Shown here is a 69-nucleotide RNA from Struthio camelus, a member of the family "Small nucleolar RNA SNORD82". snoRNA U82 or Z25 is found in both humans and mice. The source organism's lineage runs through Eukaryota, Opisthokonta, Bilateria, Palaeognathae and Struthio camelus. Gene Ontology terms of the family: RNA processing and nucleolus. The match comes from Rfam's covariance-model search (68 bits).

RNA sequence: AGCACAAAUGAUGAUUCUAAGGGACUUAAUACUGAAACGUGAUGUCAUUUUAAGCAGAAACUGAUGUGC
Dot-bracket structure: .(((((..........................................................)))))